[Rfam]
RNA: Ascomycota telomerase RNA, nucleotides 1121 to 1491
RNA sequence: CACACACGGAAGGAGAUUCGGUUCCCAGCGCAGGGAGCUCUUUUCGGCUGUUCGGCGAGUCGUCUAUGAAAGCCCUGGACACUUGAUUGGGGUUGGUUCUCAGAGCCCGGACGUGAUGGCGGACCGCCGGUUUCCUAGGGUUGUGCUUGAGUCGCCAGCAGUGUCGGGACCCAUCUCGAGUUGGAGUCAAAGUUUCGUACUUGUCCGGCCCUGUCAACGACAAGAGCAACGGCAAUUCAACGGGAGCUGGCGCCCGCCAUCGGAUCUGGAAGUCUCUCUAUUGGUUUCUAAGGGCAGGCCGCUUGACGAAAGGUAGCCCUGGUUGUCCUCGUGCCAGAAAUGGUGGGAGGGCAACCCCCCGGCUAAUGAGG
Numbered sequence: 001c002a003c004a005c006a007c008g009g010a011a012g013g014a015g016a017u018u019c020g021g022u023u024c025c026c027a028g029c030g031c032a033g034g035g036a037g038c039u040c041u042u043u044u045c046g047g048c049u050g051u052u053c054g055g056c057g058a059g060u061c062g063u064c065u066a067u068g069a070a071a072g073c074c075c076u077g078g079a080c081a082c083u084u085g086a087u088u089g090g091g092g093u094u095g096g097u098u099c100u101c102a103g104a105g106c107c108c109g110g111a112c113g114u115g116a117u118g119g120c121g122g123a124c125c126g127c128c129g130g131u132u133u134c135c136u137a138g139g140g141u142u143g144u145g146c147u148u149g150a151g152u153c154g155c156c157a158g159c160a161g162u163g164u165c166g167g168g169a170c171c172c173a174u175c176u177c178g179a180g181u182u183g184g185a186g187u188c189a190a191a192g193u194u195u196c197g198u199a200c201u202u203g204u205c206c207g208g209c210c211c212u213g214u215c216a217a218c219g220a221c222a223a224g225a226g227c228a229a230c231g232g233c234a235a236u237u238c239a240a241c242g243g244g245a246g247c248u249g250g251c252g253c254c255c256g257c258c259a260u261c262g263g264a265u266c267u268g269g270a271a272g273u274c275u276c277u278c279u280a281u282u283g284g285u286u287u288c289u290a291a292g293g294g295c296a297g298g299c300c301g302c303u304u305g306a307c308g309a310a311a312g313g314u315a316g317c318c319c320u321g322g323u324u325g326u327c328c329u330c331g332u333g334c335c336a337g338a339a340a341u342g343g344u345g346g347g348a349g350g351g352c353a354a355c356c357c358c359c360c361g362g363c364u365a366a367u368g369a370g371g
Base pairs, nucleotide, nucleotide: 168188169187170186171184172183173182190202191201192200193199